[Rfam]
RNA sequence: GAUCCGAUAGUUUGAUAGAAAGAAAUCUAUUUCUUUCUAUCAUACAAUCCGUUUUUUUUUAUUCUAGUGUAUACAGUUGUACUA
Numbered sequence: 001g002a003u004c005c006g007a008u009a010g011u012u013u014g015a016u017a018g019a020a021a022g023a024a025a026u027c028u029a030u031u032u033c034u035u036u037c038u039a040u041c042a043u044a045c046a047a048u049c050c051g052u053u054u055u056u057u058u059u060u061a062u063u064c065u066a067g068u069g070u071a072u073a074c075a076g077u078u079g080u081a082c083u084a
Base pairs, nucleotide, nucleotide: 006049007048008047010045011044013042014041015040016039017038018037019036020035021034022033023032024031025030